EFASI RNA: a 131-nucleotide sequence from Salmonella enterica. The sequence is in the family's curated seed alignment. The organism belongs to Salmonella enterica subsp. enterica serovar Stanley, within Bacteria. By type it is a small RNA.
[Rfam]
RNA sequence: AUGAACCGAUACCAGAGGGGGAUCAGGACGAUCCGGGGGAUGACCCGCUAAGGCGGGCGGCUGCUCAGAGAGCACAACCGAAGCCCCACCACACCUCAACAGCGACCGCCCCGGCGCUCAGGUAUCGUUCG
Numbered sequence: 001a002u003g004a005a006c007c008g009a010u011a012c013c014a015g016a017g018g019g020g021g022a023u024c025a026g027g028a029c030g031a032u033c034c035g036g037g038g039g040a041u042g043a044c045c046c047g048c049u050a051a052g053g054c055g056g057g058c059g060g061c062u063g064c065u066c067a068g069a070g071a072g073c074a075c076a077a078c079c080g081a082a083g084c085c086c087c088a089c090c091a092c093a094c095c096u097c098a099a100c101a102g103c104g105a106c107c108g109c110c111c112c113g114g115c116g117c118u119c120a121g122g123u124a125u126c127g128u129u130c131g
Base pairs, nucleotide, nucleotide: 002131003130004129005128007127008126009125010124011123012122013121020034021033022032023031024030036087037086038085039084044057045056046055047054048053058080059079060078062074063073064072065071066070